[Rfam]
Annotation: Rfam assigns this 355-nucleotide RNA from Terriglobus roseus to the family "transfer-messenger RNA". The family's RNA type in Rfam is non-coding RNA gene. The base pairs follow the family's consensus structure, which is taken from published work.
RNA sequence: GGGGGCGUCAUGGUUUCGACGGGGUCGCUUGUGGCAAGAGGGCAUGCCGGGGUGGGUACACCCGUAAUCGAACCCAAAAACUAUAAGUGCCGAACCUCAGUUUGCACUUGCUGCUUAAUUAAAUAAGUAGCCGAUUGCUCCCGCUUCGCCUAUGGGCGGGUACCAAUCGUCGUACAGUAGGCUGGUCAAAGCUGUUCCGCCUGGACGGCAAUGACGAGAUCGAUCAGGCUGGUGGCCGUUACAUCUUCGCCCGUUCUAAGUGGCGGCUACGAGACAAAGAUGAUACGGGAAAAGCAUGAAUGCCUUUUGUCAUUGGUUUCUUCGGACGGGAGUUCGAUUCUCCCCGCCUCCACCA
Numbered sequence: 001g002g003g004g005g006c007g008u009c010a011u012g013g014u015u016u017c018g019a020c021g022g023g024g025u026c027g028c029u030u031g032u033g034g035c036a037a038g039a040g041g042g043c044a045u046g047c048c049g050g051g052g053u054g055g056g057u058a059c060a061c062c063c064g065u066a067a068u069c070g071a072a073c074c075c076a077a078a079a080a081c082u083a084u085a086a087g088u089g090c091c092g093a094a095c096c097u098c099a100g101u102u103u104g105c106a107c108u109u110g111c112u113g114c115u116u117a118a119u120u121a122a123a124u125a126a127g128u129a130g131c132c133g134a135u136u137g138c139u140c141c142c143g144c145u146u147c148g149c150c151u152a153u154g155g156g157c158g159g160g161u162a163c164c165a166a167u168c169g170u171c172g173u174a175c176a177g178u179a180g181g182c183u184g185g186u187c188a189a190a191g192c193u194g195u196u197c198c199g200c201c202u203g204g205a206c207g208g209c210a211a212u213g214a215c216g217a218g219a220u221c222g223a224u225c226a227g228g229c230u231g232g233u234g235g236c237c238g239u240u241a242c243a244u245c246u247u248c249g250c251c252c253g254u255u256c257u258a259a260g261u262g263g264c265g266g267c268u269a270c271g272a273g274a275c276a277a278a279g280a281u282g283a284u285a286c287g288g289g290a291a292a293a294g295c296a297u298g299a300a301u302g303c304c305u306u307u308u309g310u311c312a313u314u315g316g317u318u319u320c321u322u323c324g325g326a327c328g329g330g331a332g333u334u335c336g337a338u339u340c341u342c343c344c345c346g347c348c349u350c351c352a353c354c355a
Stems, first nucleotide, its partner, number of pairs: 001351007020324005027317003031313011043298005048064004053076005110131008132169006140160007148182006185215004191209003199229005232270010244258001250289003254283002328344005